[Rfam]
RNA sequence: CUGCAUCCCCUGACAGAUCUUGAACAAUCUGAUGUUGUCCUUUUGGUUUGCACUAGGAUGCGAAAGAAAAAAAAAAUCCCCGUGCUUUCUGCCUUUGUGGCGGCCCAGAUUGAACAGAGGAAUACAUCU
Number, nucleotide and partner (000 for none) at each position: 001c000002u062003g061004c060005a059006u058007c057008c056009c000010c000011u052012g051013a000014c050015a049016g048017a047018u046019c045020u000021u000022g040023a000024a038025c037026a036027a035028u034029c000030u000031g000032a000033u000034g028035u027036u026037g025038u024039c000040c022041u000042u000043u000044u000045g019046g018047u017048u016049u015050g014051c012052a011053c000054u000055a000056g008057g007058a006059u005060g004061c003062g002063a000064a000065a000066g000067a000068a000069a000070a000071a000072a000073a000074a000075a000076a000077u121078c120079c119080c000081c117082g000083u000084g000085c112086u000087u000088u109089c103090u102091g101092c100093c099094u000095u000096u000097g000098u000099g093100g092101c091102g090103g089104c000105c000106c000107a000108g000109a088110u000111u000112g085113a000114a000115c000116a000117g081118a000119g079120g078121a077122a000123u000124a000125c000126a000127u000128c000129u000
Shown here is a 129-nucleotide sequence from Rhinolophus ferrumequinum, a member of the family "Small nucleolar RNA SNORA31".
The match comes from Rfam's covariance-model search (100 bits).
From the family's description: ACA31 (SNORA31) belongs to the H/ACA class of snoRNAs which are thought to guide the sites of modification of uridines to pseudouridines. ACA31 is predicted to guide the pseudouridylation of U3713 in 28S rRNA and U218 in 18S rRNA. This family includes the mouse homologue snoMBI-161.
The family's consensus secondary structure was predicted with RNAalifold.
The literature on the family includes a 2001 paper in EMBO J by Huttenhofer et al., "RNomics: an experimental approach that identifies 201 candidates for novel, small, non-messenger RNAs in mouse".
The source organism's lineage runs through Eukaryota, Gnathostomata, Laurasiatheria, Rhinolophidae and Rhinolophus.